A member of the RNA family "Group II catalytic intron D1-D4-3" from Desulfobacteraceae bacterium SEEP-SAG9, 173 nucleotides long.
RNA sequence: GUCAUCGCGAGGUGAUGUGGGAAGGAAGCUGAAGGCAAAGCGCUGGCCCGACGAACAGGAACUGCAUAUGAGGUGACCGUGUCGGAUAAGGAGGCAACUAUCUCUGAAGUCCGAUACCUGACCGGAAGACAUGGUCAUAUAUGUGGCGGGCAUAAGCGUGAAGGUGGGUGCGC
Numbered sequence: 001g002u003c004a005u006c007g008c009g010a011g012g013u014g015a016u017g018u019g020g021g022a023a024g025g026a027a028g029c030u031g032a033a034g035g036c037a038a039a040g041c042g043c044u045g046g047c048c049c050g051a052c053g054a055a056c057a058g059g060a061a062c063u064g065c066a067u068a069u070g071a072g073g074u075g076a077c078c079g080u081g082u083c084g085g086a087u088a089a090g091g092a093g094g095c096a097a098c099u100a101u102c103u104c105u106g107a108a109g110u111c112c113g114a115u116a117c118c119u120g121a122c123c124g125g126a127a128g129a130c131a132u133g134g135u136c137a138u139a140u141a142u143g144u145g146g147c148g149g150g151c152a153u154a155a156g157c158g159u160g161a162a163g164g165u166g167g168g169u170g171c172g173c
Base pairs, nucleotide, nucleotide: 001016002015003014004013005012006011028173029172032169035165036164040159041158042157043156044155046151047150048149049148050147062146063145064144065143066142067141073138074137075136077134078133079132080131081130082129083128084112085111086110087109090105091104092103093102
Taxonomically the source falls in Desulfobacteraceae (Bacteria, Pseudomonadati, Thermodesulfobacteriota, Desulfobacterales). Rfam describes the family as follows. Group II introns are found in rRNA, tRNA and mRNA of organelles in fungi, plants and protists, and also in mRNA in bacteria.